[Rfam]
RNA sequence: UUCAAACAAAACAAUGAAAGCCCUGCCUCUCUUCCAUCCUUGCGGUUCCUUGACCGCGCCAGUGAGAAUUGGUCUACCAACUUGCGG
Dot-bracket structure: ..................................(...(((((((((....)))))))..))...).....................

A member of the RNA family "BsrC" from Paenibacillus sp. GP183, 87 nucleotides long.
The family's RNA type in Rfam is small RNA.
The match comes from Rfam's covariance-model search (79 bits).
The family has 29 seed sequences and 572 matches in Rfam 15.1.